The family of this 97-nucleotide sequence from Neglectibacter sp. 59 is "pemK RNA". Lineage of the source: Bacteria > Clostridia > Eubacteriales > Oscillospiraceae > Neglectibacter.
[Rfam]
RNA sequence: AUAAUGAUACUUGCGUCCAGUCCUAAAGCCGAGCGUGACCCGUCGCAGCAAAGGAGGGCGCCCUCCAGAGAUCCUGGGGGUGGUGAGAUUCCAAUGA
Numbered sequence: 001a002u003a004a005u006g007a008u009a010c011u012u013g014c015g016u017c018c019a020g021u022c023c024u025a026a027a028g029c030c031g032a033g034c035g036u037g038a039c040c041c042g043u044c045g046c047a048g049c050a051a052a053g054g055a056g057g058g059c060g061c062c063c064u065c066c067a068g069a070g071a072u073c074c075u076g077g078g079g080g081u082g083g084u085g086a087g088a089u090u091c092c093a094a095u096g097a
Stems, first nucleotide, its partner, number of pairs: 012094001013061006062080003066076003081093003